[Rfam]
Nucleotides: 127
Stems, first nucleotide, its partner, number of pairs: 001054006009047001011045001014040008026031001063124002066121002070117004079106010
Number, partner (000 for none) and nucleotide at each position: 001054u002053g003052c004051a005050c006049u007000a008000g009047u010000g011045u012000a013000u014040g015039u016038u017037u018036u019035u020034g021033u022000u023000u024000a025000a026031u027000u028000u029000a030000u031026g032000g033021a034020c035019a036018a037017a038016g039015a040014c041000u042000g043000a044000c045011a046000u047009a048000a049006g050005g051004u052003g053002c054001a055000a056000a057000a058000a059000a060000c061000a062000a063124a064123u065000c066121c067120u068000c069000u070117u071116u072115u073114g074000c075000a076000a077000c078000c079106c080105a081104g082103a083102a084101c085100u086099c087098a088097u089000u090000g091000a092000u093000c094000a095000g096000u097088a098087u099086g100085a101084g102083u103082u104081u105080u106079g107000a108000u109000a110000c111000a112000u113000a114073u115072a116071a117070g118000c119000a120067g121066g122000a123064a124063u125000a126000g127000u